[Rfam]
RNA sequence: AGCCCUGGGGCAGGCUGGAAGACUUGUGAUUUUGUUGUUUCCAAUGUCAAGUGGAGCAAACAACAAAUCCCAGUCUCCGCCCUGCCAUGGGCA
Number, nucleotide and partner (000 for none) at each position: 001a000002g092003c091004c090005c089006u000007g000008g000009g086010g000011c084012a083013g082014g081015c000016u079017g078018g077019a000020a076021g075022a074023c073024u072025u000026g071027u000028g069029a068030u067031u066032u065033u000034g064035u063036u062037g061038u060039u059040u000041c000042c000043a000044a000045u000046g000047u000048c000049a000050a000051g000052u000053g000054g000055a000056g000057c000058a000059a039060a038061c037062a036063a035064c034065a032066a031067a030068u029069c028070c000071c026072a024073g023074u022075c021076u020077c018078c017079g016080c000081c014082c013083u012084g011085c000086c009087a000088u000089g005090g004091g003092c002093a000

A member of the RNA family "mir-7 microRNA precursor family" from Circaetus pectoralis, 93 nucleotides long. The family has 132 seed sequences and 2,589 matches in Rfam 15.1. Rfam describes the family as follows. This family represents the microRNA (miRNA) precursor mir-7. The match comes from Rfam's covariance-model search (67 bits). Gene Ontology terms of the family: RISC complex and miRNA-mediated post-transcriptional gene silencing.